[Rfam]
RNA sequence: GGAUGUGAGGGCGAUCUGGCUGCGGCAUCUGUCACCCCAUUGAUUGCCAGGGUUGAUUCGGCUGAUCUUGCUGGCUAGGCGGGUGUCCCCUUCCUCCCUCACCGCUCCAUGUGCGUCCCUCCCGAAGCUGUGCGCUCAGUGGAAGAGGACGUCCUCCCAGAUAGAAGGAGUACCGUUCUUCGGUCAAGGGUAUACGAUAGCUGCGCUCCCCUGCUAGAACCUCCAAAACAAGCUAUCCAGCUGCGUCGCCCUGGGAGGCCCCGUUGGGAGGGCCGAGGAAGUGGCCAGAA
Numbered sequence: 001g002g003a004u005g006u007g008a009g010g011g012c013g014a015u016c017u018g019g020c021u022g023c024g025g026c027a028u029c030u031g032u033c034a035c036c037c038c039a040u041u042g043a044u045u046g047c048c049a050g051g052g053u054u055g056a057u058u059c060g061g062c063u064g065a066u067c068u069u070g071c072u073g074g075c076u077a078g079g080c081g082g083g084u085g086u087c088c089c090c091u092u093c094c095u096c097c098c099u100c101a102c103c104g105c106u107c108c109a110u111g112u113g114c115g116u117c118c119c120u121c122c123c124g125a126a127g128c129u130g131u132g133c134g135c136u137c138a139g140u141g142g143a144a145g146a147g148g149a150c151g152u153c154c155u156c157c158c159a160g161a162u163a164g165a166a167g168g169a170g171u172a173c174c175g176u177u178c179u180u181c182g183g184u185c186a187a188g189g190g191u192a193u194a195c196g197a198u199a200g201c202u203g204c205g206c207u208c209c210c211c212u213g214c215u216a217g218a219a220c221c222u223c224c225a226a227a228a229c230a231a232g233c234u235a236u237c238c239a240g241c242u243g244c245g246u247c248g249c250c251c252u253g254g255g256a257g258g259c260c261c262c263g264u265u266g267g268g269a270g271g272g273c274c275g276a277g278g279a280a281g282u283g284g285c286c287a288g289a290a
Stems, first nucleotide, its partner, number of pairs: 001108003005102007013093002018090002024087010035074002037070001039068001042067004046062003117170001118168003121164001122139001124137002127135002140161001147157003200274001202272001206271002209268003213264002221257004
Shown here is a 290-nucleotide RNA from Sphenodon punctatus, a member of the family "7SK RNA". The match comes from Rfam's covariance-model search (224 bits). Pairs were carried over by alignment from the consensus structure, which is taken from published work.